[Rfam]
RNA sequence: CCAGCCGGUCGGACGGCCGCGUGGACAGACGCCGAAAGGUUGUUCGCGAGGAAAGUCCGGGCUCCACGGAAAGACGGUGCCGGAUAACGUCCGGCGGGGGAAACCCCAGGGAAAGUGCCACAGAAAGCAGACCGCCCCGCCUGUUUUUCGGUUCGUUCGCCCCUGAAGCGCUCUGCGCCGGGGAGCGAUGUCGGGAACCGAAAUGCUGGCGGGGCAAGGGUGAAAGGGUGGGGUAAGAGCCCACCGCGUCUCCGGUAACGGCGGCGGCAUGGUAAACCCCACCGGGAGCAAGACCGAAUAGGGACGGCGCGAGGGGAAACUCUCAGGGCUUUUUCCGGCCCGACCGUCCGGGUAGGUUGCUUGAGGCCGAUGGUAACACCGGCCCCAGAGGAAUGGUCGUCACGUUGCGCCGCUUUCGGGCGGCGUGGCCAUACAGAACCCGGCUUACAGACCGGCUGGCGCU
Numbered sequence: 001c002c003a004g005c006c007g008g009u010c011g012g013a014c015g016g017c018c019g020c021g022u023g024g025a026c027a028g029a030c031g032c033c034g035a036a037a038g039g040u041u042g043u044u045c046g047c048g049a050g051g052a053a054a055g056u057c058c059g060g061g062c063u064c065c066a067c068g069g070a071a072a073g074a075c076g077g078u079g080c081c082g083g084a085u086a087a088c089g090u091c092c093g094g095c096g097g098g099g100g101a102a103a104c105c106c107c108a109g110g111g112a113a114a115g116u117g118c119c120a121c122a123g124a125a126a127g128c129a130g131a132c133c134g135c136c137c138c139g140c141c142u143g144u145u146u147u148u149c150g151g152u153u154c155g156u157u158c159g160c161c162c163c164u165g166a167a168g169c170g171c172u173c174u175g176c177g178c179c180g181g182g183g184a185g186c187g188a189u190g191u192c193g194g195g196a197a198c199c200g201a202a203a204u205g206c207u208g209g210c211g212g213g214g215c216a217a218g219g220g221u222g223a224a225a226g227g228g229u230g231g232g233g234u235a236a237g238a239g240c241c242c243a244c245c246g247c248g249u250c251u252c253c254g255g256u257a258a259c260g261g262c263g264g265c266g267g268c269a270u271g272g273u274a275a276a277c278c279c280c281a282c283c284g285g286g287a288g289c290a291a292g293a294c295c296g297a298a299u300a301g302g303g304a305c306g307g308c309g310c311g312a313g314g315g316g317a318a319a320c321u322c323u324c325a326g327g328g329c330u331u332u333u334u335c336c337g338g339c340c341c342g343a344c345c346g347u348c349c350g351g352g353u354a355g356g357u358u359g360c361u362u363g364a365g366g367c368c369g370a371u372g373g374u375a376a377c378a379c380c381g382g383c384c385c386c387a388g389a390g391g392a393a394u395g396g397u398c399g400u401c402a403c404g405u406u407g408c409g410c411c412g413c414u415u416u417c418g419g420g421c422g423g424c425g426u427g428g429c430c431a432u433a434c435a436g437a438a439c440c441c442g443g444c445u446u447a448c449a450g451a452c453c454g455g456c457u458g459g460c461g462c463u
Stems, first nucleotide, its partner, number of pairs: 001459010011448001012401007020048009053446003057443005062288004071334003075284005080094005095109001096107004110279002115277002117273003132219002134215008227245006246268001247266004252261003292358004302349006326341005365384005371378002
RNA: Bacterial RNase P class A
Organism: Nitratireductor pacificus